The record is a 144-nucleotide RNA from Panicum virgatum, which matches "MIR529 microRNA precursor family" in Rfam. Lineage of the source: Eukaryota > Poaceae > Paniceae > Panicum > Panicum sect. Hiantes. It scores 85 bits against the family's covariance model.
[Rfam]
RNA sequence: UCGUCAAGGCUAACGGAAGAAGAGAGAGAGUACAGCUUUGGGGUUCUUAAUAAAGGUCAUAGCAGUACUUGUUGAUGAGUGACUUGUAUGAUCUUUUUUCGCCAAGGCUGUACCCUCUCUCUUCGUCUCUUAGCAUCUUGAUGU
Numbered sequence: 001u002c003g004u005c006a007a008g009g010c011u012a013a014c015g016g017a018a019g020a021a022g023a024g025a026g027a028g029a030g031u032a033c034a035g036c037u038u039u040g041g042g043g044u045u046c047u048u049a050a051u052a053a054a055g056g057u058c059a060u061a062g063c064a065g066u067a068c069u070u071g072u073u074g075a076u077g078a079g080u081g082a083c084u085u086g087u088a089u090g091a092u093c094u095u096u097u098u099u100c101g102c103c104a105a106g107g108c109u110g111u112a113c114c115c116u117c118u119c120u121c122u123u124c125g126u127c128u129c130u131u132a133g134c135a136u137c138u139u140g141a142u143g144u
Stems, first nucleotide, its partner, number of pairs: 005140002009134001012131002015128003019124010030113012